[Rfam]
Shown here is an 80-nucleotide RNA from Clostridium cellulovorans, a member of the family "c-di-GMP-I-GGC riboswitch aptamer". For this family Rfam cites "Bioinformatic analysis of riboswitch structures uncovers variant classes with altered ligand specificity" (Weinberg et al., Proc Natl Acad Sci U S A, 2017). It scores 64 bits against the family's covariance model. NCBI's taxonomy places the organism under Bacteria, Bacillota, Clostridiaceae, Clostridium, Clostridium cellulovorans.

RNA sequence: UAAAUUAAAGGCAAACUAUGCGGGAGCAUAGGACGCAAAGCCACGGGUCUGAACAUUAAAAGAUAGCCGGGUUGCAUGUA
Numbered sequence: 001u002a003a004a005u006u007a008a009a010g011g012c013a014a015a016c017u018a019u020g021c022g023g024g025a026g027c028a029u030a031g032g033a034c035g036c037a038a039a040g041c042c043a044c045g046g047g048u049c050u051g052a053a054c055a056u057u058a059a060a061a062g063a064u065a066g067c068c069g070g071g072u073u074g075c076a077u078g079u080a
Stems, first nucleotide, its partner, number of pairs: 001080001003077001011036002016031006034066001039073004044069003047064003